The family of this 75-nucleotide RNA sequence from Streptomyces qinzhouensis is "ASpks TB sRNA". For this family Rfam cites "Identification of small RNAs in Mycobacterium tuberculosis" (Arnvig and Young, Mol Microbiol, 2009). The family's consensus secondary structure is taken from published work.

RNA sequence: CUUGAUGGAGCCGAGCCAGAGCGGACGGCCCUCCGGACGUCCUUGGCCGUACGUCGCCAGCAGCGCCUGCGCCUC
Numbered sequence: 001c002u003u004g005a006u007g008g009a010g011c012c013g014a015g016c017c018a019g020a021g022c023g024g025a026c027g028g029c030c031c032u033c034c035g036g037a038c039g040u041c042c043u044u045g046g047c048c049g050u051a052c053g054u055c056g057c058c059a060g061c062a063g064c065g066c067c068u069g070c071g072c073c074u075c
Stems, first nucleotide, its partner, number of pairs: 016024002031071001033069001038065002043060003047056001049054001